[Rfam]
RNA sequence: AAGUCCUUUAAUUACUGUCCAGAGAGGCAGGCAAGGAGCUAUGAGAAGUGCGCAGGUGAACUGUGCCAUGUUUUUGUGUAUCUCCUUGUUUCAAGGGGAUUUUUUGUAU
Numbered sequence: 001a002a003g004u005c006c007u008u009u010a011a012u013u014a015c016u017g018u019c020c021a022g023a024g025a026g027g028c029a030g031g032c033a034a035g036g037a038g039c040u041a042u043g044a045g046a047a048g049u050g051c052g053c054a055g056g057u058g059a060a061c062u063g064u065g066c067c068a069u070g071u072u073u074u075u076g077u078g079u080a081u082c083u084c085c086u087u088g089u090u091u092c093a094a095g096g097g098g099a100u101u102u103u104u105u106g107u108a109u
Base pairs, nucleotide, nucleotide: 004037005036006035007034008033015030016029017028018027019026043073044072045071047069050066051065052064053063054062055061076104078102080100081099082098083097084096085095086094087093088092
Shown here is a 109-nucleotide RNA sequence from Streptococcus thermophilus, a member of the family "PyrR binding site". Pairs were carried over by alignment from the consensus structure, which is taken from published work. The organism belongs to Streptococcus thermophilus, within Bacteria.